[Rfam]
RNA sequence: UGGUGCUCGCUGGCUGUAACAGCAUCUCCAUAUGGAAUAGCUCAGGGUUCCAGUGGAGCUGCUGUUAUGGGCGGAGAGACA
Numbered sequence: 001u002g003g004u005g006c007u008c009g010c011u012g013g014c015u016g017u018a019a020c021a022g023c024a025u026c027u028c029c030a031u032a033u034g035g036a037a038u039a040g041c042u043c044a045g046g047g048u049u050c051c052a053g054u055g056g057a058g059c060u061g062c063u064g065u066u067a068u069g070g071g072c073g074g075a076g077a078g079a080c081a
Stems, first nucleotide, its partner, number of pairs: 010074003016068008026058006033052003
RNA: mir-194 microRNA precursor family